[Rfam]
A member of the RNA family "glmS glucosamine-6-phosphate activated ribozyme aptamer" from Paenibacillus oryzae, 194 nucleotides long. The family's consensus secondary structure is taken from published work. Rfam classes the family as a riboswitch. The organism belongs to Paenibacillus, within Bacteria.
RNA sequence: AUGGUACGACAAGCGCCAGAGCUUGCGUGAUGAACGAGCUGUUCGGAUUGCUGAAGCUGUUCAUACCGUAAGCUGACGAGGUGAAGGUGUUCGAAGUAUUCGGCGGGGACCUUCCGGUAUAGGGCAUGCCAACCGUAAGCCGUUACGCAAAAGGAUUGGGCGACCGAUUCCACAAACGUACGGCGGGCUGCCGC
Numbered sequence: 001a002u003g004g005u006a007c008g009a010c011a012a013g014c015g016c017c018a019g020a021g022c023u024u025g026c027g028u029g030a031u032g033a034a035c036g037a038g039c040u041g042u043u044c045g046g047a048u049u050g051c052u053g054a055a056g057c058u059g060u061u062c063a064u065a066c067c068g069u070a071a072g073c074u075g076a077c078g079a080g081g082u083g084a085a086g087g088u089g090u091u092c093g094a095a096g097u098a099u100u101c102g103g104c105g106g107g108g109a110c111c112u113u114c115c116g117g118u119a120u121a122g123g124g125c126a127u128g129c130c131a132a133c134c135g136u137a138a139g140c141c142g143u144u145a146c147g148c149a150a151a152a153g154g155a156u157u158g159g160g161c162g163a164c165c166g167a168u169u170c171c172a173c174a175a176a177c178g179u180a181c182g183g184c185g186g187g188c189u190g191c192c193g194c
Base pairs, nucleotide, nucleotide: 020074021073022072023071024070025069026068027067083114084113085112086111087110091103092102093101094100115135116134117133118132139184140183141182142181143180153170154169155168156167157166158165159164